[Rfam]
RNA sequence: CCCGAAACCACACACUUCCUUACAUUCCAUAUCUAACCCAGAUUCAUAUGGGGAUAUAAGGAAGCAUGUUGUCUCAGA
Numbered sequence: 001c002c003c004g005a006a007a008c009c010a011c012a013c014a015c016u017u018c019c020u021u022a023c024a025u026u027c028c029a030u031a032u033c034u035a036a037c038c039c040a041g042a043u044u045c046a047u048a049u050g051g052g053g054a055u056a057u058a059a060g061g062a063a064g065c066a067u068g069u070u071g072u073c074u075c076a077g078a
Stems, first nucleotide, its partner, number of pairs: 007072002010069003015064008024055002027051005
Dot-bracket structure: ......((.(((..((((((((.((.(((((...............)))))..)).))))))))..))).))......
The record is a 78-nucleotide RNA sequence from Megalops atlanticus, which matches "mir-1 microRNA precursor family" in Rfam. The source organism's lineage runs through Eukaryota, Bilateria, Chordata, Craniata and Megalops. About the family: This family represents the microRNA (miRNA) mir-1 family. miRNAs are transcribed as ~70nt precursors (modelled here) and subsequently processed by the Dicer enzyme to give a ~22nt product. In this case the mature sequence comes from the 3' arm of the precursor. For this family Rfam cites "An extensive class of small RNAs in Caenorhabditis elegans" (Lee and Ambros, Science, 2001).